Lysine riboswitch aptamer: a 180-nucleotide RNA from Fictibacillus macauensis.
RNA sequence: CGAUGGGGUAGAGGCGCAAAAAGGAAAAGUACGUUUCAUGGAGUGAGUAGGCACGAUGAUAGAAACGGAAAGGCCGAUUUGCCGAAGUGUGAACAAAUACCUAUUAUUUGCUCAUGCUGGGUCGUUGUUGAAUAAAUAACGGACUGUCACUGCUUUAAGCAGUGGAGCACUAUUCCGGCA
Numbered sequence: 001c002g003a004u005g006g007g008g009u010a011g012a013g014g015c016g017c018a019a020a021a022a023g024g025a026a027a028a029g030u031a032c033g034u035u036u037c038a039u040g041g042a043g044u045g046a047g048u049a050g051g052c053a054c055g056a057u058g059a060u061a062g063a064a065a066c067g068g069a070a071a072g073g074c075c076g077a078u079u080u081g082c083c084g085a086a087g088u089g090u091g092a093a094c095a096a097a098u099a100c101c102u103a104u105u106a107u108u109u110g111c112u113c114a115u116g117c118u119g120g121g122u123c124g125u126u127g128u129u130g131a132a133u134a135a136a137u138a139a140c141g142g143a144c145u146g147u148c149a150c151u152g153c154u155u156u157a158a159g160c161a162g163u164g165g166a167g168c169a170c171u172a173u174u175c176c177g178g179c180a
Stems, first nucleotide, its partner, number of pairs: 006175006016082005023075002032067006086118007094110004119145002122142008147165007
Pairs were carried over by alignment from the consensus structure, which is taken from published work.
The source organism's lineage runs through Bacteria, Bacilli, Caryophanales, Fictibacillaceae and Fictibacillus macauensis.